[Rfam]
Shown here is a 112-nucleotide RNA sequence from Bhargavaea cecembensis, a member of the family "SAM riboswitch aptamer (S box leader)". Clan: SAM clan. Taxonomically the source falls in Bhargavaea cecembensis (Bacteria, Bacillota, Bacilli, Bhargavaea).
RNA sequence: UUCUUAUCCAGAGCGGCGGAGGGAACUGGCCCGAUGAAGCCCGGCAACCUUCAGGCGAUGCCUGAAAGGUGCCACAUCCAGCCGGACAUCCGUUUGUCCGGGAAGAUAAGAG
Numbered sequence: 001u002u003c004u005u006a007u008c009c010a011g012a013g014c015g016g017c018g019g020a021g022g023g024a025a026c027u028g029g030c031c032c033g034a035u036g037a038a039g040c041c042c043g044g045c046a047a048c049c050u051u052c053a054g055g056c057g058a059u060g061c062c063u064g065a066a067a068g069g070u071g072c073c074a075c076a077u078c079c080a081g082c083c084g085g086a087c088a089u090c091c092g093u094u095u096g097u098c099c100g101g102g103a104a105g106a107u108a109a110g111a112g
Stems, first nucleotide, its partner, number of pairs: 001112008013042001015041003021032003026081004043073004048069002051065004077104001082101006